[Rfam]
RNA sequence: AAAUUAACCCGUUAGGUGAGGUUACUAUACAAAAACAUGCUACUGCCCUGAAACAUCGAGAGAUGCCAAAGGGUUAGCAGGCAACAUCGGCUUAAGGUGUUACCUAAUGUAGCUGGGAUUAACCCUUACGUUGUAUAGAGCCAAAGCUGUCACGAGGGGAAUAAAUA
Numbered sequence: 001a002a003a004u005u006a007a008c009c010c011g012u013u014a015g016g017u018g019a020g021g022u023u024a025c026u027a028u029a030c031a032a033a034a035a036c037a038u039g040c041u042a043c044u045g046c047c048c049u050g051a052a053a054c055a056u057c058g059a060g061a062g063a064u065g066c067c068a069a070a071g072g073g074u075u076a077g078c079a080g081g082c083a084a085c086a087u088c089g090g091c092u093u094a095a096g097g098u099g100u101u102a103c104c105u106a107a108u109g110u111a112g113c114u115g116g117g118a119u120u121a122a123c124c125c126u127u128a129c130g131u132u133g134u135a136u137a138g139a140g141c142c143a144a145a146g147c148u149g150u151c152a153c154g155a156g157g158g159g160a161a162u163a164a165a166u167a
Stems, first nucleotide, its partner, number of pairs: 005163002009159002011153002013095001015148003020142003025138008039113005045074005054065004080104002083101001086098003115126003
This 167-nucleotide RNA sequence from Thermanaerosceptrum fracticalcis belongs to the Rfam family "M-box riboswitch aptamer (ykoK leader)". It scores 149 bits against the family's covariance model. Pairs were carried over by alignment from the consensus structure.